[Rfam]
RNA sequence: AAUUCCCACACGAUGAAAGCCCUACCUCUCGUUCAUCCUUGCGGCUCCUUGACCGCGCCAGCUGAAUGAAAAGCGCUUUUCACUA
Numbered sequence: 001a002a003u004u005c006c007c008a009c010a011c012g013a014u015g016a017a018a019g020c021c022c023u024a025c026c027u028c029u030c031g032u033u034c035a036u037c038c039u040u041g042c043g044g045c046u047c048c049u050u051g052a053c054c055g056c057g058c059c060a061g062c063u064g065a066a067u068g069a070a071a072a073g074c075g076c077u078u079u080u081c082a083c084u085a
Base pairs, nucleotide, nucleotide: 033065034064035063038061039060040057041056042055043054044053046051